Group II catalytic intron D1-D4-6: a 222-nucleotide RNA sequence from Aeoliella straminimaris. The literature on the family includes a 2003 paper in Crit Rev Biochem Mol Biol by Lehmann and Schmidt, "Group II introns: structure and catalytic versatility of large natural ribozymes". The base pairs follow the family's consensus structure.

RNA sequence: AGAGUCCCACGGAGAAGACCUAGCCAGUCACUCCGGCCUUGAGUCGUACGCUGACCGCGGUAACGCGGUGGGUGUAGCAUCGGCAAGAGGUACAGGCAGGCCAGCUAUUGAGCUCCGAAAUCACCGUGGUCCCGUAUGCCCACACUGUGUUGGUUGUGGAAGGCAACACGUGAGGUUGCGUCGAAGGCAAGUGAUCUCACGAUACGGCGGAGUCGUAGAUCC
Numbered sequence: 001a002g003a004g005u006c007c008c009a010c011g012g013a014g015a016a017g018a019c020c021u022a023g024c025c026a027g028u029c030a031c032u033c034c035g036g037c038c039u040u041g042a043g044u045c046g047u048a049c050g051c052u053g054a055c056c057g058c059g060g061u062a063a064c065g066c067g068g069u070g071g072g073u074g075u076a077g078c079a080u081c082g083g084c085a086a087g088a089g090g091u092a093c094a095g096g097c098a099g100g101c102c103a104g105c106u107a108u109u110g111a112g113c114u115c116c117g118a119a120a121u122c123a124c125c126g127u128g129g130u131c132c133c134g135u136a137u138g139c140c141c142a143c144a145c146u147g148u149g150u151u152g153g154u155u156g157u158g159g160a161a162g163g164c165a166a167c168a169c170g171u172g173a174g175g176u177u178g179c180g181u182c183g184a185a186g187g188c189a190a191g192u193g194a195u196c197u198c199a200c201g202a203u204a205c206g207g208c209g210g211a212g213u214c215g216u217a218g219a220u221c222c
Base pairs, nucleotide, nucleotide: 010035011034012033013032014031017029018028019027021190023188024187037090038089039088040087043084044083045082046081047079049074050073051072052071054069055068056067057066058065059064110214112213113212114211115210116209117208132207133206134205135204136203137202138164139163140162143158144157145156169201170200171199172198173197174196175195176194177193178192179191